[Rfam]
RNA: Small nucleolar RNA SNORD45
RNA sequence: GGUCAGUGACGUCACGGCAUGUAUUAGCUGAACGCUAACCUGAGGCCAGUUACAAAUAGCAGUGAGACCUU
Numbered sequence: 001g002g003u004c005a006g007u008g009a010c011g012u013c014a015c016g017g018c019a020u021g022u023a024u025u026a027g028c029u030g031a032a033c034g035c036u037a038a039c040c041u042g043a044g045g046c047c048a049g050u051u052a053c054a055a056a057u058a059g060c061a062g063u064g065a066g067a068c069c070u071u
Stems, first nucleotide, its partner, number of pairs: 001069004